Record summary:
The record is a 148-nucleotide RNA from Actinomadura rudentiformis, which matches "c-di-AMP riboswitch aptamer (ydaO/yuaA leader)" in Rfam. Rfam's curators write: This family represents a conserved RNA structure found upstream of the ydaO and yuaA genes in Bacillus subtilis and related genes in other bacteria. The organism belongs to Actinomadura, within Bacteria.
[Rfam]
RNA sequence: CAUCGACCGACGCCGAGUCCCGUGCCGCAGCCGGCGCUACGGGAGCCGGGGACCCAUCUGUCACUCGGGGUGAAUCCGCAUGUCCGCGGUAGGGCGACUCCUGGCCCGAACCCGUCAGCUAACCCGGUAGGCCGCAUGUGGAGAAUUC
Dot-bracket structure: ...........(((...(((((((.............)))))))((((((....(...........)(((.....((((......))))..((((........))))...))).........)))))).)))................